A member of the RNA family "Glycine riboswitch aptamer" from Muribacter muris, 84 nucleotides long.
Nucleotides: 084
Base pairs, nucleotide, nucleotide: 006079007078008077009076010075011074012073013072019032020031021030022029034058035057036056037054038053041052042051043050
Number, partner (000 for none) and nucleotide at each position: 001000a002000u003000g004000a005000a006079g007078a008077u009076a010075g011074c012073u013072g014000g015000a016000g017000a018000g019032u020031g021030g022029g023000g024000a025000g026000c027000a028000c029022c030021c031020c032019a033000c034058a035057c036056c037054g038053a039000c040000g041052a042051g043050g044000u045000a046000a047000a048000c049000u050043c051042u052041u053038u054037c055000a056036g057035g058034u059000g060000c061000g062000u063000a064000a065000g066000c067000g068000a069000g070000g071000a072013c073012a074011g075010c076009u077008a078007u079006u080000g081000g082000a083000c084000g
Its family is annotated with glycine biosynthetic process in the Gene Ontology.